[Rfam]
RNA: UnaL2 LINE 3' element
Organism: Conger conger
RNA sequence: CACUUUGCACUUUGUACAUCGCUCUGGAUAAGAGCGUCUGCCAAAUGGCAAAAA
Numbered sequence: 001c002a003c004u005u006u007g008c009a010c011u012u013u014g015u016a017c018a019u020c021g022c023u024c025u026g027g028a029u030a031a032g033a034g035c036g037u038c039u040g041c042c043a044a045a046u047g048g049c050a051a052a053a054a
Base pairs, nucleotide, nucleotide: 013043014041015040016039020036021035022034023033024032025031